[Rfam]
A member of the RNA family "M-box riboswitch aptamer (ykoK leader)" from Clostridium gasigenes, 160 nucleotides long.
Taxonomically the source falls in Clostridium (Bacteria, Bacillota, Clostridia, Clostridiaceae).
Pairs were carried over by alignment from the consensus structure.
It scores 104 bits against the family's covariance model.
RNA sequence: AAUAGUUUUCGGUAGGUGAGGUUAUCUUAGGGAUACGGGUUGCUGCCGCGAAAUAAUGGAGACAUUAUUAGUUGGUUAGCAGAAUACGUCGAGUACAAGGCGUAUUUUAAUGCAAUUACAUUGCCCUAGGAUGUUGAAGCUUGAACGAGAGAAGUUAGAA
Numbered sequence: 001a002a003u004a005g006u007u008u009u010c011g012g013u014a015g016g017u018g019a020g021g022u023u024a025u026c027u028u029a030g031g032g033a034u035a036c037g038g039g040u041u042g043c044u045g046c047c048g049c050g051a052a053a054u055a056a057u058g059g060a061g062a063c064a065u066u067a068u069u070a071g072u073u074g075g076u077u078a079g080c081a082g083a084a085u086a087c088g089u090c091g092a093g094u095a096c097a098a099g100g101c102g103u104a105u106u107u108u109a110a111u112g113c114a115a116u117u118a119c120a121u122u123g124c125c126c127u128a129g130g131a132u133g134u135u136g137a138a139g140c141u142u143g144a145a146c147g148a149g150a151g152a153a154g155u156u157a158g159a160a
Base pairs, nucleotide, nucleotide: 005156007154008153009152010151011146013098015141016140017139020135021134022133025131026130027129028128029127030126031125032124039116040115041114042113043112045076046075047074048073055066056065057064058063082107083106084105085104088101089100090099

Gene Ontology terms of the family: regulation of gene expression and response to magnesium ion. Rfam describes the family as follows. M-box riboswitch, also know as ykoK leader is described as a metaloregulatory RNA that sense divalent metals and function as a genetic control element of genes related to divalent metal transport in bacteria.